[Rfam]
A member of the RNA family "Selenocysteine transfer RNA" from Stackebrandtia endophytica, 92 nucleotides long. The organism belongs to Stackebrandtia, within Bacteria.
RNA sequence: GGAGGCGGGCAGGUGCCUGGUGGCCUUCACGGUCUUCAAAACCGAUGUGGUCGAGUCUCUCGGCUGGGCGGGUUCGAUUCCCGUACGCCUCC
Numbered sequence: 001g002g003a004g005g006c007g008g009g010c011a012g013g014u015g016c017c018u019g020g021u022g023g024c025c026u027u028c029a030c031g032g033u034c035u036u037c038a039a040a041a042c043c044g045a046u047g048u049g050g051u052c053g054a055g056u057c058u059c060u061c062g063g064c065u066g067g068g069c070g071g072g073u074u075c076g077a078u079u080c081c082c083g084u085a086c087g088c089c090u091c092c
Base pairs, nucleotide, nucleotide: 001092002091003090004089005088006087007086009084012027013026015024016023017022030044031043032042033041048066049065050064051063052062069083070082071081072080